[Rfam]
RNA sequence: GGGGGCGUAUGGAUUCGACGGGGGUUAUGAGGCUUAGGCAGCAUGUCGUGUUUCCGCGGUCACGUAAAAAAGCGGAAAAACUUACAAAAGCCAACGACGAACUGGCACUUGCCGCUUAAAUAAGCGGCACGCAUUCCUGGGGAGGUCUGCUACCUUGGAUAUGCGUCAUAAAGCGGGCUGGCGGCUGAUGAGGUCCCUGCAUCAGGCGUGAGAUCAUAGGGAAUACGGGUACGGUGAGCCUGUCUGUUGGCGCUAAAAUACCCAAGAGCUAAAAAACAGACUAAGCAUGUAGCGGCUUAAGAGUAGUGCUUUCGGACGCGGGUUCGAUUCCCGCCGCCUCCACCA
Numbered sequence: 001g002g003g004g005g006c007g008u009a010u011g012g013a014u015u016c017g018a019c020g021g022g023g024g025u026u027a028u029g030a031g032g033c034u035u036a037g038g039c040a041g042c043a044u045g046u047c048g049u050g051u052u053u054c055c056g057c058g059g060u061c062a063c064g065u066a067a068a069a070a071a072g073c074g075g076a077a078a079a080a081c082u083u084a085c086a087a088a089a090g091c092c093a094a095c096g097a098c099g100a101a102c103u104g105g106c107a108c109u110u111g112c113c114g115c116u117u118a119a120a121u122a123a124g125c126g127g128c129a130c131g132c133a134u135u136c137c138u139g140g141g142g143a144g145g146u147c148u149g150c151u152a153c154c155u156u157g158g159a160u161a162u163g164c165g166u167c168a169u170a171a172a173g174c175g176g177g178c179u180g181g182c183g184g185c186u187g188a189u190g191a192g193g194u195c196c197c198u199g200c201a202u203c204a205g206g207c208g209u210g211a212g213a214u215c216a217u218a219g220g221g222a223a224u225a226c227g228g229g230u231a232c233g234g235u236g237a238g239c240c241u242g243u244c245u246g247u248u249g250g251c252g253c254u255a256a257a258a259u260a261c262c263c264a265a266g267a268g269c270u271a272a273a274a275a276a277c278a279g280a281c282u283a284a285g286c287a288u289g290u291a292g293c294g295g296c297u298u299a300a301g302a303g304u305a306g307u308g309c310u311u312u313c314g315g316a317c318g319c320g321g322g323u324u325c326g327a328u329u330c331c332c333g334c335c336g337c338c339u340c341c342a343c344c345a
Base pairs, nucleotide, nucleotide: 001341002340003339004338005337006336007335019314020313021312022311023310024309025308028305033301034300035299036298037297038296039295041293042289043288044287045286046285047064048063049062050061052077053076054075055074056073057072110129111128112127113126114125115124130165131164132163133162134161137158138157139155140154141153145178146177147176148175149174150173151172181209182208183207185205186204187203188202189201192224194222195221196220197219227263228262229261230260231259235255236254238251239250240249242281243280244279245278247274248273318334319333320332321331322330
Dot-bracket structure: (((((((...........(((((((..(....(((((((.(((((([[[[.((((((...]]]].......))))))................................((((((........))))))[[[[[..[[[[[...(((((((.]]].]]..]]]]]......)))))))..(((.(((((..[.[[[[...))))).))).........]]]].]..(((((...((.(((.[[[[.[[)))..))...))))).........]]...]]]]...)))))...).)))))))...)..)))))))...(((((.......))))))))))))....
A member of the RNA family "transfer-messenger RNA" from Candidatus Magnetomonas plexicatena, 345 nucleotides long. The organism belongs to Candidatus Magnetomonas, within Bacteria. Rfam classes the family as a non-coding RNA gene. Bacterial tmRNA, also known as 10Sa RNA or SsrA, is named for its dual tRNA and mRNA-like properties. Its role is to liberate the mRNA from a stalled ribosome. To accomplish this part of the tmRNA is used as a reading frame that ends in a translation stop signal. The broken mRNA is replaced in the ribosome by the tmRNA and translation of the tmRNA leads to addition of a proteolysis tag to the incomplete protein enabling recognition by a protease. Pairs were carried over by alignment from the consensus structure, which is taken from published work. Gene Ontology term of the family: RNA catabolic process. The match comes from Rfam's covariance-model search (196 bits).